[Rfam]
Guanidine-I riboswitch aptamer: a 102-nucleotide RNA from Acuticoccus mangrovi. About the family: This family represents a conserved RNA structure found upstream of the ykkC and yxkD genes in Bacillus subtilis and related genes in other bacteria. The pairing is the family consensus, mapped onto this sequence.

RNA sequence: AAAGCUAGCGGCUAGGGUUCCGGCGGCGCUUCGGCGUCGCGGCUGGUCCGAGAGCCGCCGCCUGCCCAUGCAGGUACACGGCGGGACAAAAGCCCGGGAGGU
Numbered sequence: 001a002a003a004g005c006u007a008g009c010g011g012c013u014a015g016g017g018u019u020c021c022g023g024c025g026g027c028g029c030u031u032c033g034g035c036g037u038c039g040c041g042g043c044u045g046g047u048c049c050g051a052g053a054g055c056c057g058c059c060g061c062c063u064g065c066c067c068a069u070g071c072a073g074g075u076a077c078a079c080g081g082c083g084g085g086a087c088a089a090a091a092g093c094c095c096g097g098g099a100g101g102u
Stems, first nucleotide, its partner, number of pairs: 008058005015049002020046002022043001023040006060075006077097001079100001083095003

Lineage of the source: Bacteria > Pseudomonadati > Pseudomonadota > Amorphaceae > Acuticoccus.